[Rfam]
RNA sequence: GGUCGCAACGAUCGCCCUUAGCCUGGCUCAAUGGCCCGUCCCCCGCCUUGCCAGGUCCAGACGGACAAAGGCCCUCCCCCCUCUCCGGGCCUUUGUCCGCCCUUGCGUAGGAUGCCGUUCCCGCUACCCCACGGGAACGGCCCUUUUUU
Numbered sequence: 001g002g003u004c005g006c007a008a009c010g011a012u013c014g015c016c017c018u019u020a021g022c023c024u025g026g027c028u029c030a031a032u033g034g035c036c037c038g039u040c041c042c043c044c045g046c047c048u049u050g051c052c053a054g055g056u057c058c059a060g061a062c063g064g065a066c067a068a069a070g071g072c073c074c075u076c077c078c079c080c081c082u083c084u085c086c087g088g089g090c091c092u093u094u095g096u097c098c099g100c101c102c103u104u105g106c107g108u109a110g111g112a113u114g115c116c117g118u119u120c121c122c123g124c125u126a127c128c129c130c131a132c133g134g135g136a137a138c139g140g141c142c143c144u145u146u147u148u149u
Stems, first nucleotide, its partner, number of pairs: 022055006033047003063098011110145001114141010

Rfam assigns this 149-nucleotide RNA from Phytoamicus setariae to the family "Alphaproteobacterial sRNA ar7". The family's RNA type in Rfam is small RNA.